Source information: The family of this 85-nucleotide RNA from Medicago truncatula is "MIR2617 microRNA precursor family". Rfam 15.1 lists 1,174 matches to the family in 2 species. The family's consensus secondary structure was predicted with RNAalifold.
[Rfam]
RNA sequence: AUGAAGUGUAGCAUGCACGUUGUGGAUUACUCUGAUGUAAAAAUGUUAUUUAAUUGCUUUUGGGUAACGGGGUGUUACAACUGUU
Numbered sequence: 001a002u003g004a005a006g007u008g009u010a011g012c013a014u015g016c017a018c019g020u021u022g023u024g025g026a027u028u029a030c031u032c033u034g035a036u037g038u039a040a041a042a043a044u045g046u047u048a049u050u051u052a053a054u055u056g057c058u059u060u061u062g063g064g065u066a067a068c069g070g071g072g073u074g075u076u077a078c079a080a081c082u083g084u085u
Base pairs, nucleotide, nucleotide: 003084005082006081007079008078009077010076011075012074013073014072016071018069019068020067021066